[Rfam]
RNA: Bacterial large subunit ribosomal RNA, nucleotides 801 to 1240
RNA sequence: CUCCUCGAAAGCUAUUUAGGUAGCGCCUCGUGUAUAACUGUUGGGGGUAGAGCACUGUUUCGGCUAGGGGGUCAUCUCGACUUACCAACCCGAUGCAAACUCCGAAUACCAACAAGUUUGAGCACGGGAGACACACGGCGGGUGAUAAGGUCCGUCGUGGAAAGGGAAACAGCCCAGACCGUCAGCUAAGGUCCCAAAAUCUAUGCUCAGUGGGAAACGAUGUGGGAAGGCACAGACAGCCAGGAGGUUGGCUUAGAAGCAGCCAUCCUUUAAAGAAAGCGUAAUAGCUCACUGGUCGAGUCGGCCUGCGCGGAAGAUUUACCGGGGCUAAGCAUAGUACCGAAGCUACGGGUCACACUUUUAGUGUGGCGGUAGAGGAGCGUUCUGUACGCCUGCGAAGGUGAACUGAGAAGUUUGCUGGAGGUAUCAGAAGUGCGAAU
Numbered sequence: 001c002u003c004c005u006c007g008a009a010a011g012c013u014a015u016u017u018a019g020g021u022a023g024c025g026c027c028u029c030g031u032g033u034a035u036a037a038c039u040g041u042u043g044g045g046g047g048u049a050g051a052g053c054a055c056u057g058u059u060u061c062g063g064c065u066a067g068g069g070g071g072u073c074a075u076c077u078c079g080a081c082u083u084a085c086c087a088a089c090c091c092g093a094u095g096c097a098a099a100c101u102c103c104g105a106a107u108a109c110c111a112a113c114a115a116g117u118u119u120g121a122g123c124a125c126g127g128g129a130g131a132c133a134c135a136c137g138g139c140g141g142g143u144g145a146u147a148a149g150g151u152c153c154g155u156c157g158u159g160g161a162a163a164g165g166g167a168a169a170c171a172g173c174c175c176a177g178a179c180c181g182u183c184a185g186c187u188a189a190g191g192u193c194c195c196a197a198a199a200u201c202u203a204u205g206c207u208c209a210g211u212g213g214g215a216a217a218c219g220a221u222g223u224g225g226g227a228a229g230g231c232a233c234a235g236a237c238a239g240c241c242a243g244g245a246g247g248u249u250g251g252c253u254u255a256g257a258a259g260c261a262g263c264c265a266u267c268c269u270u271u272a273a274a275g276a277a278a279g280c281g282u283a284a285u286a287g288c289u290c291a292c293u294g295g296u297c298g299a300g301u302c303g304g305c306c307u308g309c310g311c312g313g314a315a316g317a318u319u320u321a322c323c324g325g326g327g328c329u330a331a332g333c334a335u336a337g338u339a340c341c342g343a344a345g346c347u348a349c350g351g352g353u354c355a356c357a358c359u360u361u362u363a364g365u366g367u368g369g370c371g372g373u374a375g376a377g378g379a380g381c382g383u384u385c386u387g388u389a390c391g392c393c394u395g396c397g398a399a400g401g402u403g404a405a406c407u408g409a410g411a412a413g414u415u416u417g418c419u420g421g422a423g424g425u426a427u428c429a430g431a432a433g434u435g436c437g438a439a440u
Base pairs, nucleotide, nucleotide: 001380002379003378004377005376006375011024012023013022014021015020026130027128028127029126030125031124032123033122035121036118037117038116039114040113041112042111043110044109050103051101052100056097057096058095060093061092062091063090067086068085069083070082071081072080073079134159135158136157137156138155139154140153141152142151143150164175165174166173179351180350181349182348184347185346186345190341191340192339199338201337202336203335204334205333206332218312219311222309223308224307225306226305229302230301231300239296240295241294242293243292245269246268247267250264251263252262270274275290279288280287352370353369354368355367356366357365358364359363381435383432384431385430386429387428391425392424393423400419401418402417403416404415405414406413407412